[Rfam]
Shown here is a 77-nucleotide RNA from Neogobius melanostomus, a member of the family "mir-27 microRNA precursor family". Gene Ontology terms of the family: RISC complex and miRNA-mediated post-transcriptional gene silencing. Lineage of the source: Eukaryota > Actinopterygii > Ctenosquamata > Gobioidei > Neogobius. A reference for the family is Chen et al. (2005), "The developmental miRNA profiles of zebrafish as determined by small RNA cloning", Genes Dev. The base pairs follow the family's consensus structure, which was predicted with RNAalifold.

RNA sequence: UGCGGCCGCAGGACUUAGCUCACAUGUGAACAGUUGAGUGUGGGCCAUGUUCACAGUGGUUAAGUUCUGCCGCCACA
Numbered sequence: 001u002g003c004g005g006c007c008g009c010a011g012g013a014c015u016u017a018g019c020u021c022a023c024a025u026g027u028g029a030a031c032a033g034u035u036g037a038g039u040g041u042g043g044g045c046c047a048u049g050u051u052c053a054c055a056g057u058g059g060u061u062a063a064g065u066u067c068u069g070c071c072g073c074c075a076c077a
Stems, first nucleotide, its partner, number of pairs: 011067010026054007